The family of this 76-nucleotide RNA sequence from Crocodylus porosus is "Mammalian CPEB3 ribozyme". Lineage of the source: Eukaryota > Dipnotetrapodomorpha > Sauria > Crocodylidae > Crocodylus. The family's consensus secondary structure is taken from published work. About the family: The mammalian CPEB3 ribozyme is a self cleaving RNA located in the second intron of the CPEB3 gene which belongs to a family of genes regulating messenger RNA polyadenylation.

[Rfam]
RNA sequence: AGUGACUUCCUAAAGCCAUAGUAGAAGUGCUCAUGGCGCAGCUCCGUCAGAUUCCAACGAAUCUGCGAAUUCUGCU
Numbered sequence: 001a002g003u004g005a006c007u008u009c010c011u012a013a014a015g016c017c018a019u020a021g022u023a024g025a026a027g028u029g030c031u032c033a034u035g036g037c038g039c040a041g042c043u044c045c046g047u048c049a050g051a052u053u054c055c056a057a058c059g060a061a062u063c064u065g066c067g068a069a070u071u072c073u074g075c076u
Stems, first nucleotide, its partner, number of pairs: 014043003020076007027039003048065007